[Rfam]
RNA: epsC RNA
Organism: Cohnella terricola
RNA sequence: AGGUAAUACCUACUACACCUUUAUCAUCGUAGGUACUCGAGCACACUGUGGGCUGUAAACAGCCUUAGACGUAAAGCGUCGGUGGUGUGUUGUGAGGGGGGGUUGAAUGCCCC
Dot-bracket structure: [[[[..(((((((...]]]]........)))))))((((((((((((..((((((....))))))..((((.....))))...)))))))).))))..(((((.....)))))